RNA: Bacterial RNase P class A
RNA sequence: UUGGCAUGAUAAACGGUCGCUUUGGCAUCUCACACCAAAGAGGAAAGUCCGAGCUGCUAUAAGACAUGGUUCCAUCUAACAGAUGGCUAAGGAAACUUAAGGGAUAGUGCAACAGAAAGCAAACUUCCGCAUUUGCGGUAAAGGUGAAACGGUAAGGUAAGAGCUUACCAGCAUUAUUGGUAACAAUGAUGGCUUUGUAAACCCAACCUGCAGCAAGAAGGGAUGGUUUUGGUCUUAUAUUAAAACCCUUCGCUUGAGCUAAAUUGCGAAAUUUAGCCUAGAUAAAUGACCGUUCUAGACAGAACUCGGCUUAUCGUCAUGCCUUUUUG
Numbered sequence: 001u002u003g004g005c006a007u008g009a010u011a012a013a014c015g016g017u018c019g020c021u022u023u024g025g026c027a028u029c030u031c032a033c034a035c036c037a038a039a040g041a042g043g044a045a046a047g048u049c050c051g052a053g054c055u056g057c058u059a060u061a062a063g064a065c066a067u068g069g070u071u072c073c074a075u076c077u078a079a080c081a082g083a084u085g086g087c088u089a090a091g092g093a094a095a096c097u098u099a100a101g102g103g104a105u106a107g108u109g110c111a112a113c114a115g116a117a118a119g120c121a122a123a124c125u126u127c128c129g130c131a132u133u134u135g136c137g138g139u140a141a142a143g144g145u146g147a148a149a150c151g152g153u154a155a156g157g158u159a160a161g162a163g164c165u166u167a168c169c170a171g172c173a174u175u176a177u178u179g180g181u182a183a184c185a186a187u188g189a190u191g192g193c194u195u196u197g198u199a200a201a202c203c204c205a206a207c208c209u210g211c212a213g214c215a216a217g218a219a220g221g222g223a224u225g226g227u228u229u230u231g232g233u234c235u236u237a238u239a240u241u242a243a244a245a246c247c248c249u250u251c252g253c254u255u256g257a258g259c260u261a262a263a264u265u266g267c268g269a270a271a272u273u274u275a276g277c278c279u280a281g282a283u284a285a286a287u288g289a290c291c292g293u294u295c296u297a298g299a300c301a302g303a304a305c306u307c308g309g310c311u312u313a314u315c316g317u318c319a320u321g322c323c324u325u326u327u328u329g
Stems, first nucleotide, its partner, number of pairs: 003323008011314001012294007020040006028032001045312003049309005054213004062238001064236001068208004072086005087101001088099004102204002107202002109198003124143002127138004151169006171193001172191008217251004225247006258277008